[Rfam]
RNA: nhaA-I RNA
Nucleotides: 058
Stems, first nucleotide, its partner, number of pairs: 005028002008026007040058002043056004
Number, partner (000 for none) and nucleotide at each position: 001000g002000g003000g004000u005028g006027u007000u008026a009025c010024c011023g012022c013021g014020u015000g016000c017000u018000c019000c020014g021013c022012g023011c024010g025009g026008u027006g028005c029000a030000g031000g032000u033000c034000a035000a036000u037000c038000a039000g040058c041057g042000c043056u044055g045054g046053u047000c048000g049000g050000g051000c052000c053046g054045c055044c056043a057041c058040g